[Rfam]
RNA sequence: AAUUAACUUAAGAGGCAACUCUUAACUGACCGACUGGGGAAAUGCCGAGAGGUUCAAGCCCAGGGGGCAGAAAACUCUGUUGAGUAGCGCUAAAAUGGCGGAGUGCAAAGGCAUGGCGGUAGCGCCUACAACGACGUGCCAA
Numbered sequence: 001a002a003u004u005a006a007c008u009u010a011a012g013a014g015g016c017a018a019c020u021c022u023u024a025a026c027u028g029a030c031c032g033a034c035u036g037g038g039g040a041a042a043u044g045c046c047g048a049g050a051g052g053u054u055c056a057a058g059c060c061c062a063g064g065g066g067g068c069a070g071a072a073a074a075c076u077c078u079g080u081u082g083a084g085u086a087g088c089g090c091u092a093a094a095a096u097g098g099c100g101g102a103g104u105g106c107a108a109a110g111g112c113a114u115g116g117c118g119g120u121a122g123c124g125c126c127u128a129c130a131a132c133g134a135c136g137u138g139c140c141a142a
Stems, first nucleotide, its partner, number of pairs: 008025007026070003030067002034063005044053003074104008087125005110140006117133002
IMES-2 RNA motif: a 142-nucleotide RNA. The base pairs follow the family's consensus structure, which is taken from published work. A reference for the family is Weinberg et al. (2009), "Exceptional structured noncoding RNAs revealed by bacterial metagenome analysis", Nature. The family's RNA type in Rfam is non-coding RNA gene.